[Rfam]
RNA sequence: GCUCUGGGCAGGAUAUCAUCGUAUACUGUAAGUCGGAUAUGAGACACUACAGUAUAGAUGAUGUACUACCCCGGCCUC
Numbered sequence: 001g002c003u004c005u006g007g008g009c010a011g012g013a014u015a016u017c018a019u020c021g022u023a024u025a026c027u028g029u030a031a032g033u034c035g036g037a038u039a040u041g042a043g044a045c046a047c048u049a050c051a052g053u054a055u056a057g058a059u060g061a062u063g064u065a066c067u068a069c070c071c072c073g074g075c076c077u078c
Stems, first nucleotide, its partner, number of pairs: 007070002010067002013064008022056009032045003
mir-144 microRNA precursor family: a 78-nucleotide RNA sequence from Alligator sinensis.
The organism belongs to Alligator, within Eukaryota.
Pairs were carried over by alignment from the consensus structure, which was predicted with RNAalifold.
Rfam links the family to the GO terms RISC complex and miRNA-mediated post-transcriptional gene silencing.